The record is a 137-nucleotide sequence from Kutzneria sp. 744, which matches "Group II catalytic intron D1-D4-4" in Rfam.
A reference for the family is Bonen and Vogel (2001), "The ins and outs of group II introns", Trends Genet.
The organism belongs to Kutzneria, within Bacteria.
About the family: Group II introns are found in rRNA, tRNA and mRNA of organelles in fungi, plants and protists, and also in mRNA in bacteria.
[Rfam]
RNA sequence: UUGCCGGUGUGAGUCCGGUCCGGGUAGUUGCCAGGAAGCCCGGUAGCAGACUGGCGGCUCGGCGGGGAAACCUGUCGGGUCGAAGCCCAGUGUCAAAUGCCCUUCAAGGGGGAGCAACUGAGCGGUCCGUAGCAUCA
Numbered sequence: 001u002u003g004c005c006g007g008u009g010u011g012a013g014u015c016c017g018g019u020c021c022g023g024g025u026a027g028u029u030g031c032c033a034g035g036a037a038g039c040c041c042g043g044u045a046g047c048a049g050a051c052u053g054g055c056g057g058c059u060c061g062g063c064g065g066g067g068a069a070a071c072c073u074g075u076c077g078g079g080u081c082g083a084a085g086c087c088c089a090g091u092g093u094c095a096a097a098u099g100c101c102c103u104u105c106a107a108g109g110g111g112g113a114g115c116a117a118c119u120g121a122g123c124g125g126u127c128c129g130u131a132g133c134a135u136c137a
Stems, first nucleotide, its partner, number of pairs: 020043005050091005055082006064073001066071001100112004114130002